[Rfam]
RNA sequence: UAGCCCCGGCGGCGGCUGCAGCGGCGGCGGGAGUCUUCGAGGCCAGUUGGGGAGGCGGGAAGGGCUGGGCAGGCGCCCGCUGUCAGCCGGGAGCCAGGACUUCUACA
Numbered sequence: 001u002a003g004c005c006c007c008g009g010c011g012g013c014g015g016c017u018g019c020a021g022c023g024g025c026g027g028c029g030g031g032a033g034u035c036u037u038c039g040a041g042g043c044c045a046g047u048u049g050g051g052g053a054g055g056c057g058g059g060a061a062g063g064g065c066u067g068g069g070c071a072g073g074c075g076c077c078c079g080c081u082g083u084c085a086g087c088c089g090g091g092a093g094c095c096a097g098g099a100c101u102u103c104u105a106c107a
Stems, first nucleotide, its partner, number of pairs: 003065004011044003
RNA: GRIK4 3 prime UTR element
Organism: Orycteropus afer